[Rfam]
The family of this 62-nucleotide RNA from Sylvia borin is "eL15-Euryarchaeota ribosomal protein leader". A reference for the family is Eckert and Weinberg (2020), "Discovery of 20 novel ribosomal leader candidates in bacteria and archaea", BMC Microbiol. Pairs were carried over by alignment from the consensus structure, which is taken from published work.
RNA sequence: GUUGAUUGUCAACUUGGGAUGUGGCCCAACUAAAUAAAGAAAAAAAAGGGCUGAACUAGACA
Numbered sequence: 001g002u003u004g005a006u007u008g009u010c011a012a013c014u015u016g017g018g019a020u021g022u023g024g025c026c027c028a029a030c031u032a033a034a035u036a037a038a039g040a041a042a043a044a045a046a047a048g049g050g051c052u053g054a055a056c057u058a059g060a061c062a
Stems, first nucleotide, its partner, number of pairs: 001013005015058003023052005
It is annotated as a cis-regulatory leader.